Rfam assigns this 113-nucleotide RNA from Shewanella aestuarii to the family "Ribosomal S15 leader". Its family is annotated with regulation of translation, ncRNA-mediated in the Gene Ontology.

[Rfam]
RNA sequence: UCCUUUAGCUGAGUUAGUGAUCGGCUAAAGAUAAUUUUUUAUAUUUGGAGAUACACAUGUCACUAAGUGCUGAAACUAAAGCAAAAAUCGUAGCUGAAUUUGGUCGUGGCGAU
Numbered sequence: 001u002c003c004u005u006u007a008g009c010u011g012a013g014u015u016a017g018u019g020a021u022c023g024g025c026u027a028a029a030g031a032u033a034a035u036u037u038u039u040u041a042u043a044u045u046u047g048g049a050g051a052u053a054c055a056c057a058u059g060u061c062a063c064u065a066a067g068u069g070c071u072g073a074a075a076c077u078a079a080a081g082c083a084a085a086a087a088u089c090g091u092a093g094c095u096g097a098a099u100u101u102g103g104u105c106g107u108g109g110c111g112a113u
Base pairs, nucleotide, nucleotide: 007026008025009024010023011022012021044067045066046065047064048063050061